The record is a 93-nucleotide RNA sequence from Megasphaera elsdenii, which matches "Selenocysteine transfer RNA" in Rfam. Taxonomically the source falls in Megasphaera elsdenii (Bacteria, Bacillati, Negativicutes, Veillonellaceae). The match comes from Rfam's covariance-model search (72 bits).
[Rfam]
RNA sequence: GGGGGAGGAUGGGUUCUGGUGUUCCCUCUGGUCUUCAAAACCAGCAUGAGGGGUUAAGAGCUUCUCAGGUGGGUUCGAUUCCCACACUUCCCC
Numbered sequence: 001g002g003g004g005g006a007g008g009a010u011g012g013g014u015u016c017u018g019g020u021g022u023u024c025c026c027u028c029u030g031g032u033c034u035u036c037a038a039a040a041c042c043a044g045c046a047u048g049a050g051g052g053g054u055u056a057a058g059a060g061c062u063u064c065u066c067a068g069g070u071g072g073g074u075u076c077g078a079u080u081c082c083c084a085c086a087c088u089u090c091c092c093c
Stems, first nucleotide, its partner, number of pairs: 001093007008085001011026003016021001028044005047067005070084004